[Rfam]
RNA sequence: CCAGAAACAACAUCCUGGUGCUGCCCGAGUGUUUGAACGCAGACUCCAGCAUCAGUGAUUUUGUUGCCGG
Dot-bracket structure: .....(((((.((((((((((((.......................))))))))).))).))))).....
Numbered sequence: 001c002c003a004g005a006a007a008c009a010a011c012a013u014c015c016u017g018g019u020g021c022u023g024c025c026c027g028a029g030u031g032u033u034u035g036a037a038c039g040c041a042g043a044c045u046c047c048a049g050c051a052u053c054a055g056u057g058a059u060u061u062u063g064u065u066g067c068c069g070g
Stems, first nucleotide, its partner, number of pairs: 006065005012059003015055009